[Rfam]
RNA sequence: GAAAAGCCUGCAUAUGCUCUCCAUCUCUCAGCUGUGCGGGUGCCAAAAAGGAGGAAAUACAUACCGGUACGGCUCACGGUGCGGCAGUGUGGAGACCUGUUGUAAAGCGCGGCGCCCAUCGCGGUACCGCGUGAGAACGCAUCCGCGGAGGCGGAGCGGUCAGAGCCGGGAAAGAUGGCA
Numbered sequence: 001g002a003a004a005a006g007c008c009u010g011c012a013u014a015u016g017c018u019c020u021c022c023a024u025c026u027c028u029c030a031g032c033u034g035u036g037c038g039g040g041u042g043c044c045a046a047a048a049a050g051g052a053g054g055a056a057a058u059a060c061a062u063a064c065c066g067g068u069a070c071g072g073c074u075c076a077c078g079g080u081g082c083g084g085c086a087g088u089g090u091g092g093a094g095a096c097c098u099g100u101u102g103u104a105a106a107g108c109g110c111g112g113c114g115c116c117c118a119u120c121g122c123g124g125u126a127c128c129g130c131g132u133g134a135g136a137a138c139g140c141a142u143c144c145g146c147g148g149a150g151g152c153g154g155a156g157c158g159g160u161c162a163g164a165g166c167c168g169g170g171a172a173a174g175a176u177g178g179c180a
Stems, first nucleotide, its partner, number of pairs: 007040008016032003064079003070168006080104008089096002107132006114125002135161002138158003142154001144153003
About this RNA
This 180-nucleotide RNA belongs to the Rfam family "malK-I RNA". It is one of the family's seed sequences. It is annotated as a cis-regulatory element.